Overview
Small nucleolar RNA SNORD121A: an 81-nucleotide RNA sequence from Otolemur garnettii.
RNA sequence: CUGGAAAAGACAAUGAUGUUUUAUUUCCAAGCACAUAUCUGAAUUUAUGUGUGGACAGCAUGAAAACUGAGUCUUUUCCAU
Numbered sequence: 001c002u003g004g005a006a007a008a009g010a011c012a013a014u015g016a017u018g019u020u021u022u023a024u025u026u027c028c029a030a031g032c033a034c035a036u037a038u039c040u041g042a043a044u045u046u047a048u049g050u051g052u053g054g055a056c057a058g059c060a061u062g063a064a065a066a067c068u069g070a071g072u073c074u075u076u077u078c079c080a081u
Stems, first nucleotide, its partner, number of pairs: 002080005008074004
For this family Rfam cites "snoSeeker: an advanced computational package for screening of guide and orphan snoRNA genes in the human genome" (Yang et al., Nucleic Acids Res, 2006). Its family is annotated with RNA processing and nucleolus in the Gene Ontology. The family's consensus secondary structure was predicted with WAR. Lineage of the source: Eukaryota > Eumetazoa > Theria > Boreoeutheria > Otolemur. It is annotated as a C/D-box small nucleolar RNA.